Shown here is a 90-nucleotide sequence, a member of the family "GA-cis RNA". It is annotated as a small RNA. Pairs were carried over by alignment from the consensus structure, which is taken from published work.
RNA sequence: AGGAGGAGGAGCGCAAUGACGCGAAGCGGCAUUUUUGAAAUGCGCUCCGACGAGCUGCCUCGACCCGAACGGGUCGUGGCGAUACCUUAA
Numbered sequence: 001a002g003g004a005g006g007a008g009g010a011g012c013g014c015a016a017u018g019a020c021g022c023g024a025a026g027c028g029g030c031a032u033u034u035u036u037g038a039a040a041u042g043c044g045c046u047c048c049g050a051c052g053a054g055c056u057g058c059c060u061c062g063a064c065c066c067g068a069a070c071g072g073g074u075c076g077u078g079g080c081g082a083u084a085c086c087u088u089a090a
Stems, first nucleotide, its partner, number of pairs: 008048006016032003020028002057080003061076002065072002